[Rfam]
RNA sequence: UCUAGAACUCAAGAUAUGGGCUGAACACUGAACAACGUCUGGACUGUAGGACAUAUUCUGACUUCUCCGUUGUUGCUAUAAUUUGGACUUGAAAACGGCAUUUUUAAAUCUUAGACUCCACAUGAAAGUUUUAGGCCUAUAUCUUAUCUUUCCAUC
Numbered sequence: 001u002c003u004a005g006a007a008c009u010c011a012a013g014a015u016a017u018g019g020g021c022u023g024a025a026c027a028c029u030g031a032a033c034a035a036c037g038u039c040u041g042g043a044c045u046g047u048a049g050g051a052c053a054u055a056u057u058c059u060g061a062c063u064u065c066u067c068c069g070u071u072g073u074u075g076c077u078a079u080a081a082u083u084u085g086g087a088c089u090u091g092a093a094a095a096c097g098g099c100a101u102u103u104u105u106a107a108a109u110c111u112u113a114g115a116c117u118c119c120a121c122a123u124g125a126a127a128g129u130u131u132u133a134g135g136c137c138u139a140u141a142u143c144u145u146a147u148c149u150u151u152c153c154a155u156c
Stems, first nucleotide, its partner, number of pairs: 003154001005152003009146001011145010021134005027129003035123001037121001041119003045115001048112004055104001059100002062098002072088003
MIR2912 microRNA precursor family: a 156-nucleotide RNA sequence from Populus tomentosa.
Gene Ontology terms of the family: RISC complex and miRNA-mediated post-transcriptional gene silencing.
The family has 2 seed sequences and 15,051 matches in Rfam 15.1.